[Rfam]
RNA sequence: GGACAGUGAUGAUUUUUAAUGAUGUCUCGUUCGUCGUAAUAUAAGCUGUGACAAGUUUAUUUGACGACCAUACUGUUAUAUCACCACCCAUAAACUGAGUCC
Numbered sequence: 001g002g003a004c005a006g007u008g009a010u011g012a013u014u015u016u017u018a019a020u021g022a023u024g025u026c027u028c029g030u031u032c033g034u035c036g037u038a039a040u041a042u043a044a045g046c047u048g049u050g051a052c053a054a055g056u057u058u059a060u061u062u063g064a065c066g067a068c069c070a071u072a073c074u075g076u077u078a079u080a081u082c083a084c085c086a087c088c089c090a091u092a093a094a095c096u097g098a099g100u101c102c
Stems, first nucleotide, its partner, number of pairs: 001102004043062002
Shown here is a 102-nucleotide RNA from Arabis alpina, a member of the family "Small nucleolar RNA Z43".
Lineage of the source: Eukaryota > Euphyllophyta > Brassicales > Arabideae > Arabis.
Gene Ontology terms of the family: nucleolus and RNA processing.
It scores 79 bits against the family's covariance model.
For this family Rfam cites "The high diversity of snoRNAs in plants: identification and comparative study of 120 snoRNA genes from Oryza sativa" (Chen et al., Nucleic Acids Res, 2003).
By type it is a C/D-box small nucleolar RNA.